[Rfam]
RNA: c-di-GMP-I riboswitch aptamer
Organism: Gemmatimonas groenlandica
RNA sequence: GUCGCGAAACGGCAAACCCGACGGAAGUCGGGGACGCAAAGCUCCGGGGCUUACACGUGGUCCGCCACGUCAGCCGGCCGAGUUACCGAA
Numbered sequence: 001g002u003c004g005c006g007a008a009a010c011g012g013c014a015a016a017c018c019c020g021a022c023g024g025a026a027g028u029c030g031g032g033g034a035c036g037c038a039a040a041g042c043u044c045c046g047g048g049g050c051u052u053a054c055a056c057g058u059g060g061u062c063c064g065c066c067a068c069g070u071c072a073g074c075c076g077g078c079c080g081a082g083u084u085a086c087c088g089a090a
Stems, first nucleotide, its partner, number of pairs: 012037002017032006040084004045080003048075003055070006